The family of this 63-nucleotide sequence from Variovorax sp. Sphag1AA is "Fluoride riboswitch aptamer (crcB RNA motif)". The base pairs follow the family's consensus structure, which is taken from published work. A search with the family's covariance model found it, with a score of 52 bits. The organism belongs to Variovorax, within Bacteria. The family has 289 seed sequences and 2,293 matches in Rfam 15.1.
RNA sequence: ACUUUCGACGGAGAUGGCAUACCUCCGAAACCGCCCGCGAGGGCUGAUGAUGCCUACGACCAA
Numbered sequence: 001a002c003u004u005u006c007g008a009c010g011g012a013g014a015u016g017g018c019a020u021a022c023c024u025c026c027g028a029a030a031c032c033g034c035c036c037g038c039g040a041g042g043g044c045u046g047a048u049g050a051u052g053c054c055u056a057c058g059a060c061c062a063a
Stems, first nucleotide, its partner, number of pairs: 010026004016054005033044004